[Rfam]
RNA sequence: UCAUUGAAUGUGAGAAUUGGAUGAAACCAAAUCCUUUUGUCUGCAAUGAUGAAGGACUGAAGGAGGGUUUGGUUUCCUUCAAUAUCUUACCUUGAACAG
Numbered sequence: 001u002c003a004u005u006g007a008a009u010g011u012g013a014g015a016a017u018u019g020g021a022u023g024a025a026a027c028c029a030a031a032u033c034c035u036u037u038u039g040u041c042u043g044c045a046a047u048g049a050u051g052a053a054g055g056a057c058u059g060a061a062g063g064a065g066g067g068u069u070u071g072g073u074u075u076c077c078u079u080c081a082a083u084a085u086c087u088u089a090c091c092u093u094g095a096a097c098a099g
Stems, first nucleotide, its partner, number of pairs: 004096002007093002011089004016083006023076008032067007
Dot-bracket structure: ...((.((..((((.((((((.((((((((.(((((((......................))))))).)))))))).))))))..))))..)).))...
RNA: MIR2275 microRNA precursor family